[Rfam]
RNA sequence: CCUCUUGAGGACGACGACGUCAUCUCCUAUGUGCUCACCGGCCUCGACUCCGACUACAAUCCCAUCUCCACGUCCAUCCUCACCAGGGUUGAGCCCAUCAGGCUUGAUGAGUUCUUUUCUCAACUUGUUAGCUUUGAGA
Numbered sequence: 001c002c003u004c005u006u007g008a009g010g011a012c013g014a015c016g017a018c019g020u021c022a023u024c025u026c027c028u029a030u031g032u033g034c035u036c037a038c039c040g041g042c043c044u045c046g047a048c049u050c051c052g053a054c055u056a057c058a059a060u061c062c063c064a065u066c067u068c069c070a071c072g073u074c075c076a077u078c079c080u081c082a083c084c085a086g087g088g089u090u091g092a093g094c095c096c097a098u099c100a101g102g103c104u105u106g107a108u109g110a111g112u113u114c115u116u117u118u119c120u121c122a123a124c125u126u127g128u129u130a131g132c133u134u135u136g137a138g139a
Stems, first nucleotide, its partner, number of pairs: 004138005088108006
The record is a 139-nucleotide sequence from Digitaria exilis, which matches "Small nucleolar RNA Z247" in Rfam. The family's consensus secondary structure was predicted with PFOLD. Rfam classes the family as a C/D-box small nucleolar RNA.